[Rfam]
RNA sequence: CUGCUAUGAUGAUAUCCAUGUGGUUUCUCACUUCUGAUAAGUAGUGAGGACAAUUUUCUCUUGGCUGUCUGAGCAG
Numbered sequence: 001c002u003g004c005u006a007u008g009a010u011g012a013u014a015u016c017c018a019u020g021u022g023g024u025u026u027c028u029c030a031c032u033u034c035u036g037a038u039a040a041g042u043a044g045u046g047a048g049g050a051c052a053a054u055u056u057u058c059u060c061u062u063g064g065c066u067g068u069c070u071g072a073g074c075a076g
Base pairs, nucleotide, nucleotide: 001076002075003074004073